The record is a 123-nucleotide sequence from Deinococcus proteolyticus, which matches "SAM riboswitch aptamer (S box leader)" in Rfam.

[Rfam]
RNA sequence: CCUUUAUCCAGAGCGGUGCAGGGAACUGGCCCGAUAACCACCGCAGCAACCGGCCCUCAUUACGGCCACGGUGCUCCGCCAGCCCGCGUGAAUCACGAUGUGAAGCGACGGGAACGAUAAGGG
Numbered sequence: 001c002c003u004u005u006a007u008c009c010a011g012a013g014c015g016g017u018g019c020a021g022g023g024a025a026c027u028g029g030c031c032c033g034a035u036a037a038c039c040a041c042c043g044c045a046g047c048a049a050c051c052g053g054c055c056c057u058c059a060u061u062a063c064g065g066c067c068a069c070g071g072u073g074c075u076c077c078g079c080c081a082g083c084c085c086g087c088g089u090g091a092a093u094c095a096c097g098a099u100g101u102g103a104a105g106c107g108a109c110g111g112g113a114a115c116g117a118u119a120a121g122g123g
Stems, first nucleotide, its partner, number of pairs: 001123008013044005021032003026082004045075004050071002052067004078115001083112004

Source information
Pairs were carried over by alignment from the consensus structure, which is taken from published work.